[Rfam]
RNA sequence: GAAGUGCGAACCAAGCUGCGGCGAUAGCCGCGUGAGACUUGGAGCGGGCGAUUGUAAGGUCGUCCUGCG
Numbered sequence: 001g002a003a004g005u006g007c008g009a010a011c012c013a014a015g016c017u018g019c020g021g022c023g024a025u026a027g028c029c030g031c032g033u034g035a036g037a038c039u040u041g042g043a044g045c046g047g048g049c050g051a052u053u054g055u056a057a058g059g060u061c062g063u064c065c066u067g068c069g
Base pairs, nucleotide, nucleotide: 011042012041013040014039015038018031019030020029021028022027046065047064048063049062050061051060052059053058
A member of the RNA family "Transposase-2 RNA", 69 nucleotides long.
It is one of the family's seed sequences.